[Rfam]
RNA: Streptomyces sRNA 4677
RNA sequence: GGGUCCGGCACGCCGCUGACCUCCUCAAAGAACCGGGGGAAAGAACUACCCGCCCACCCGCCCUCCCCGGCCGCACGGCGCGCGUCACUCGUCCGGGUGACCGGCUUGCAGGCGGGGGACACGGACGGUUACGUUCGCCGCGACAACAGCACACAGACAUCGGCCCCCGCCGGGACUGCAAUCCCGAACGAGGGCCUGACCGAUCAGGAAGAAGUACCUUCCCG
Numbered sequence: 001g002g003g004u005c006c007g008g009c010a011c012g013c014c015g016c017u018g019a020c021c022u023c024c025u026c027a028a029a030g031a032a033c034c035g036g037g038g039g040a041a042a043g044a045a046c047u048a049c050c051c052g053c054c055c056a057c058c059c060g061c062c063c064u065c066c067c068c069g070g071c072c073g074c075a076c077g078g079c080g081c082g083c084g085u086c087a088c089u090c091g092u093c094c095g096g097g098u099g100a101c102c103g104g105c106u107u108g109c110a111g112g113c114g115g116g117g118g119a120c121a122c123g124g125a126c127g128g129u130u131a132c133g134u135u136c137g138c139c140g141c142g143a144c145a146a147c148a149g150c151a152c153a154c155a156g157a158c159a160u161c162g163g164c165c166c167c168c169g170c171c172g173g174g175a176c177u178g179c180a181a182u183c184c185c186g187a188a189c190g191a192g193g194g195c196c197u198g199a200c201c202g203a204u205c206a207g208g209a210a211g212a213a214g215u216a217c218c219u220u221c222c223c224g
Base pairs, nucleotide, nucleotide: 007204009202015071016070017069018068085100086099087098088097089096090095111139112138113137114136115135162196163195164194165193166192168190169189172185173184174183175182207222208221209220210219211218